[Rfam]
RNA sequence: GGACAUAUCUCUGGAGAGUCUCUUAAUGAGCGCCGAAGGUGCACGAAGCGAUAGCUUCUUAUCUCUCAGGCAAAAGGACAGAGGGCAAUGA
Dot-bracket structure: .......((((((......(((.....))).(((((..(.(...(((((....)))))....).))).))).......)))))).......
Shown here is a 91-nucleotide RNA sequence from Megasphaera micronuciformis, a member of the family "Glycine riboswitch aptamer". Lineage of the source: Bacteria > Bacillati > Bacillota > Megasphaera > Megasphaera micronuciformis. Its Rfam clan is "Glycine riboswitch clan". Its family is annotated with glycine biosynthetic process in the Gene Ontology.